[Rfam]
RNA sequence: ACACUGCGAUGAUGUGGGAGGUUGCUGACACACCAGGCCCCUUUGCCAUGGCAGGUGUAGGAAUUUCCACGGAGAAUGUCUAUUAUAAAAUGGGCGA
Numbered sequence: 001a002c003a004c005u006g007c008g009a010u011g012a013u014g015u016g017g018g019a020g021g022u023u024g025c026u027g028a029c030a031c032a033c034c035a036g037g038c039c040c041c042u043u044u045g046c047c048a049u050g051g052c053a054g055g056u057g058u059a060g061g062a063a064u065u066u067c068c069a070c071g072g073a074g075a076a077u078g079u080c081u082a083u084u085a086u087a088a089a090a091u092g093g094g095c096g097a
Stems, first nucleotide, its partner, number of pairs: 014070003018067004025054003029050001077096004